SAM riboswitch aptamer (S box leader): a 105-nucleotide RNA from Halobacillus karajensis. The source organism's lineage runs through Bacteria, Bacillati, Bacilli, Caryophanales and Halobacillus. Rfam describes the family as follows. The SAM riboswitch is found upstream of a number of genes which code for proteins involved in methionine or cysteine biosynthesis in Gram-positive bacteria.

[Rfam]
RNA sequence: UUCUUAUCAAGAGUGACCGAGGGAUAGGCCCUUUGACGUCACAGCAACCUUCCUGCGGGAGUGGUGCUAAAUCCGCCAGAAUGUAUUUAUUCUGGGAGAUAAGAG
Numbered sequence: 001u002u003c004u005u006a007u008c009a010a011g012a013g014u015g016a017c018c019g020a021g022g023g024a025u026a027g028g029c030c031c032u033u034u035g036a037c038g039u040c041a042c043a044g045c046a047a048c049c050u051u052c053c054u055g056c057g058g059g060a061g062u063g064g065u066g067c068u069a070a071a072u073c074c075g076c077c078a079g080a081a082u083g084u085a086u087u088u089a090u091u092c093u094g095g096g097a098g099a100u101a102a103g104a105g
Stems, first nucleotide, its partner, number of pairs: 001105008013042005021031003027074002043068004048064002050060004072097001077094006